[Rfam]
Shown here is a 54-nucleotide RNA from Shimia aestuarii, a member of the family "COG3860 RNA". The base pairs follow the family's consensus structure, which is taken from published work. Taxonomically the source falls in Shimia (Bacteria, Pseudomonadati, Pseudomonadota, Roseobacteraceae).
RNA sequence: CGGUCCGCAGUUCACCGAGGCGCCGCCGGUCACACGACCCUGCUAAACCUGCCG
Numbered sequence: 001c002g003g004u005c006c007g008c009a010g011u012u013c014a015c016c017g018a019g020g021c022g023c024c025g026c027c028g029g030u031c032a033c034a035c036g037a038c039c040c041u042g043c044u045a046a047a048c049c050u051g052c053c054g
Base pairs, nucleotide, nucleotide: 001017002016003015004014028039029038030037031036